[Rfam]
The record is a 67-nucleotide RNA, which matches "pemK RNA" in Rfam. The family's RNA type in Rfam is cis-regulatory element. Rfam's curators put it in the seed alignment.
RNA sequence: AUAAUGAUACGUCUGUCCGAAUGCGAGGCAGCCCGGUGAGACCCACGGGGAGGUGCGAUUCCUAUGA
Numbered sequence: 001a002u003a004a005u006g007a008u009a010c011g012u013c014u015g016u017c018c019g020a021a022u023g024c025g026a027g028g029c030a031g032c033c034c035g036g037u038g039a040g041a042c043c044c045a046c047g048g049g050g051a052g053g054u055g056c057g058a059u060u061c062c063u064a065u066g067a
Stems, first nucleotide, its partner, number of pairs: 012064001013031004032050003036046003051063003